[Rfam]
RNA sequence: UUACUCCCUCUGUCUCAUAAUAUAAGAAUGUUUUUUACACUAGUAUAGUGUAAAAACGCUCUUAUAUUAUGGGACAGAGGAAGUAG
Numbered sequence: 001u002u003a004c005u006c007c008c009u010c011u012g013u014c015u016c017a018u019a020a021u022a023u024a025a026g027a028a029u030g031u032u033u034u035u036u037a038c039a040c041u042a043g044u045a046u047a048g049u050g051u052a053a054a055a056a057c058g059c060u061c062u063u064a065u066a067u068u069a070u071g072g073g074a075c076a077g078a079g080g081a082a083g084u085a086g
Stems, first nucleotide, its partner, number of pairs: 003084003007080005013074005019068009029058006036052006
This 86-nucleotide RNA sequence from Triticum urartu belongs to the Rfam family "MIR1120/MIR1122 microRNA precursor family". Taxonomically the source falls in Triticum (Eukaryota, Viridiplantae, commelinids, Poales). The family has 6 seed sequences and 44,765 matches in Rfam 15.1. The base pairs follow the family's consensus structure, which was predicted with RNAalifold. The match comes from Rfam's covariance-model search (88 bits). For this family Rfam cites "Cloning and characterization of microRNAs from wheat (Triticum aestivum L.)" (Yao et al., Genome Biol, 2007).